A member of the RNA family "RT-3 RNA", 172 nucleotides long.
RNA sequence: AAUCGUCUCUACGGCAAACCGUUACGAGUUGGCGGACAGCUGAGGGCGAGAACCCUGCGCCACGACAAAAGCGAAGUCGCUAAGCGGCAUCGGAAAGUCGAAACAUCACGAUUGGUUGGUAGAGGUUGGUAGGACUUCUUUUUAUGAGACAGUCUCGAAGACCUUAGACCAA
Numbered sequence: 001a002a003u004c005g006u007c008u009c010u011a012c013g014g015c016a017a018a019c020c021g022u023u024a025c026g027a028g029u030u031g032g033c034g035g036a037c038a039g040c041u042g043a044g045g046g047c048g049a050g051a052a053c054c055c056u057g058c059g060c061c062a063c064g065a066c067a068a069a070a071g072c073g074a075a076g077u078c079g080c081u082a083a084g085c086g087g088c089a090u091c092g093g094a095a096a097g098u099c100g101a102a103a104c105a106u107c108a109c110g111a112u113u114g115g116u117u118g119g120u121a122g123a124g125g126u127u128g129g130u131a132g133g134a135c136u137u138c139u140u141u142u143u144a145u146g147a148g149a150c151a152g153u154c155u156c157g158a159a160g161a162c163c164u165u166a167g168a169c170c171a172a
Stems, first nucleotide, its partner, number of pairs: 003049005012042004019035005063100004072092003076088005116172005122165006132155005
Annotation:
By type it is a small RNA.